[Rfam]
RNA sequence: AUUACGUUGCGGCUCGUCAUCGGGCACUUUGCUUCUACAAAAUGCAAGCUGCCUUUUGAAGGGCAACACUGUGAU
Numbered sequence: 001a002u003u004a005c006g007u008u009g010c011g012g013c014u015c016g017u018c019a020u021c022g023g024g025c026a027c028u029u030u031g032c033u034u035c036u037a038c039a040a041a042a043u044g045c046a047a048g049c050u051g052c053c054u055u056u057u058g059a060a061g062g063g064c065a066a067c068a069c070u071g072u073g074a075u
Stems, first nucleotide, its partner, number of pairs: 004072003008068002012064004017059003023053002028048005